Background:
A member of the RNA family "Small nucleolar RNA SNORD35" from Anguilla anguilla, 82 nucleotides long. Rfam 15.1 lists 1,842 matches to the family in 634 species. Gene Ontology terms of the family: RNA processing and nucleolus. From the family's description: U35 is a C/D box snoRNA located in intron 6 of ribosomal protein L13A and intron 3 of ribosomal protein S11 in humans and at homologous positions in mouse and chicken ribosomal protein genes. The family is grouped with related families in Rfam's "SNORD35 clan". NCBI's taxonomy places the organism under Eukaryota, Gnathostomata, Neopterygii, Anguillidae, Anguilla. It is annotated as a C/D-box small nucleolar RNA.

RNA sequence: UGCAAAUGAUGUUUAUCUCACGAUGGUCUUCUGAGCCUCUGGCACUGAUGACACUGCCUAAUGGCAAAACUGAUGCAGCUCU
Numbered sequence: 001u002g003c004a005a006a007u008g009a010u011g012u013u014u015a016u017c018u019c020a021c022g023a024u025g026g027u028c029u030u031c032u033g034a035g036c037c038u039c040u041g042g043c044a045c046u047g048a049u050g051a052c053a054c055u056g057c058c059u060a061a062u063g064g065c066a067a068a069a070c071u072g073a074u075g076c077a078g079c080u081c082u
Stems, first nucleotide, its partner, number of pairs: 001077004